A member of the RNA family "mir-395 microRNA precursor family" from Medicago truncatula, 120 nucleotides long. Rfam's curators write: mir-395 was identified in both Arabidopsis thaliana and Oryza sativa computationally and was later experimentally verified. mir-395 is thought to target mRNAs coding for ATP sulphurylases. The mature sequence is excised from the 3' arm of the hairpin. Rfam links the family to the GO terms RISC complex and miRNA-mediated post-transcriptional gene silencing. NCBI's taxonomy places the organism under Eukaryota, Mesangiospermae, eudicotyledons, rosids, Medicago. It scores 64 bits against the family's covariance model. Rfam 15.1 lists 2,798 matches to the family in 234 species. On this family, see Jones-Rhoades and Bartel, Mol Cell 2004: "Computational Identification of Plant MicroRNAs and Their Targets, Including a Stress-Induced miRNA".
RNA sequence: UUGUCUCUUAGAGUUCCUUUGAACGCUUCAUGCAUGAGAAUAUCUAUCUAUUUGGUCUAAAAUCCAUUAGAAAAGAUAGUUCUUCUUAAAUGAAGUGUUUGGGGGAACUCUUGGGUUCAA
Numbered sequence: 001u002u003g004u005c006u007c008u009u010a011g012a013g014u015u016c017c018u019u020u021g022a023a024c025g026c027u028u029c030a031u032g033c034a035u036g037a038g039a040a041u042a043u044c045u046a047u048c049u050a051u052u053u054g055g056u057c058u059a060a061a062a063u064c065c066a067u068u069a070g071a072a073a074a075g076a077u078a079g080u081u082c083u084u085c086u087u088a089a090a091u092g093a094a095g096u097g098u099u100u101g102g103g104g105g106a107a108c109u110c111u112u113g114g115g116u117u118c119a120a
Base pairs, nucleotide, nucleotide: 006115007114008113011110012109013108014107015106016105017104018103019102020101022100023099024097025096026095027094028093029092030091031090034087